[Rfam]
RNA sequence: GCGGUACCGGUUCACGCCGCAGCGGCAUCAGCCGCCCGGCGACCCGGCGACC
Numbered sequence: 001g002c003g004g005u006a007c008c009g010g011u012u013c014a015c016g017c018c019g020c021a022g023c024g025g026c027a028u029c030a031g032c033c034g035c036c037c038g039g040c041g042a043c044c045c046g047g048c049g050a051c052c
Stems, first nucleotide, its partner, number of pairs: 003052003007047004015041005022035005

This 52-nucleotide sequence belongs to the Rfam family "L31-Actinobacteria ribosomal protein leader".
Rfam's curators put it in the seed alignment.
It is annotated as a cis-regulatory leader.